[Rfam]
RNA sequence: UGCACCGGCUAACUGCUGCAAAUUUUAAAUUUGUAGAGGAAAGUCCGCGCUAGUACAAUCUGAGAUGGUUGUAGUGAUCGUGUUAGCCCAAAUAAGGCUAAGCUCGUACGUCAGGUAGAAACUCUAGAAGUCAAAACCUAAAGUGCCACAGAGACGAGAAGGGGCGACCCGGAAAUGAAACGCGGUAAACACCACGAACUAGAAACCCAAAUUAUGGUAGGGGAACUAAACUAAGAGAAUUCAAUCAAGGUUUGGUGCCGAAAGGUAAGAGAAAUAGUUAGCAUCCGUAAGGAUACAGAACGCGGCUUAUAAGU
Dot-bracket structure: ...((.((((((((.((((((.........))))))....[[[.[[[[[(((((((((((......)))))).....(((((((((((.......))))))(......)((.((((......(....).......))))...(((((.............(((....))).............)))..))))))))))))))...(((...........)))...(((((((................)))))))((((....))))........))))))).(((....))).......]]]]]]]].)..))
Notes
A member of the RNA family "Bacterial RNase P class B" from Mycoplasma marinum, 314 nucleotides long. The organism belongs to Mycoplasma, within Bacteria. The base pairs follow the family's consensus structure, which is taken from published work. A reference for the family is Frank and Pace (1998), "Ribonuclease P: unity and diversity in a tRNA processing ribozyme", Annu Rev Biochem. The family is grouped with related families in Rfam's "RNaseP clan".